[Rfam]
RNA: Plastid-psbA-1 3UTR RNA
Organism: Triticum aestivum
RNA sequence: UUGAAGUUCCAUCUAUUAAUGGAUAAGGUUUUUCUGCUAACAUAUAAGAAUUUUUGAAGAAAGAAACGACAGAAAUACCCAAUAUCAACAAGAUAUUGGGUAUUUCUGUCUU
Numbered sequence: 001u002u003g004a005a006g007u008u009c010c011a012u013c014u015a016u017u018a019a020u021g022g023a024u025a026a027g028g029u030u031u032u033u034c035u036g037c038u039a040a041c042a043u044a045u046a047a048g049a050a051u052u053u054u055u056g057a058a059g060a061a062a063g064a065a066a067c068g069a070c071a072g073a074a075a076u077a078c079c080c081a082a083u084a085u086c087a088a089c090a091a092g093a094u095a096u097u098g099g100g101u102a103u104u105u106c107u108g109u110c111u112u
Base pairs, nucleotide, nucleotide: 008023009022010021011020012019066112068110069109070108071107072106073105074104075103076102077101078100080098081097082096084094085093086092